[Rfam]
RNA sequence: AAAAGGAGCAAUAACCUCUUUCUUGUUCUAUCAAGAGGGUGGUAUUGCUCCUUUUUU
Numbered sequence: 001a002a003a004a005g006g007a008g009c010a011a012u013a014a015c016c017u018c019u020u021u022c023u024u025g026u027u028c029u030a031u032c033a034a035g036a037g038g039g040u041g042g043u044a045u046u047g048c049u050c051c052u053u054u055u056u057u
Stems, first nucleotide, its partner, number of pairs: 001055013016039003021036005